[Rfam]
RNA sequence: UCUCAACUAGUCACUUGUUAUUUUCUAAUUGGUUCUUAAUAUGCUAAAAUUUUCUAAGAACCAAUUAGAAAAUGACAAGCAGUUAAUUGAGG
Numbered sequence: 001u002c003u004c005a006a007c008u009a010g011u012c013a014c015u016u017g018u019u020a021u022u023u024u025c026u027a028a029u030u031g032g033u034u035c036u037u038a039a040u041a042u043g044c045u046a047a048a049a050u051u052u053u054c055u056a057a058g059a060a061c062c063a064a065u066u067a068g069a070a071a072a073u074g075a076c077a078a079g080c081a082g083u084u085a086a087u088u089g090a091g092g
Base pairs, nucleotide, nucleotide: 002091003090004089005088006087008085009084010083011082014079015078016077017076018075019074020073021072022071023070024069025068026067027066028065029064030063031062032061033060034059035058036057037056038055
The record is a 92-nucleotide RNA sequence from Prunus yedoensis, which matches "MIR6288 microRNA precursor family" in Rfam.
The family has 3 seed sequences and 293 matches in Rfam 15.1.
A search with the family's covariance model found it, with a score of 81 bits.
The family's consensus secondary structure was predicted with RNAalifold.
Gene Ontology terms of the family: RISC complex and miRNA-mediated post-transcriptional gene silencing.